Rfam assigns this 68-nucleotide RNA to the family "U7 small nuclear RNA". Rfam describes the family as follows. Animal histone pre-mRNAs are spliced by a different mechanism than nuclear pre-mRNAs and self-splicing introns. This processing involves the U7 snRNP, which contains only one RNA species: U7. The 5' end of U7 RNA is thought to base-pair to a conserved spacer element downstream of the cleavage site in histone pre-mRNA. This family contains a number of annotated U7 pseudogenes.

RNA sequence: GAGAGACCAUUUAUCUUUCAAGUUUCUCUAGAAGGGUCUCGCGUCCGAAGUCGGUGGCGAGUGCCCAA
Dot-bracket structure: ..................................((((((((..((......))..))))).)))...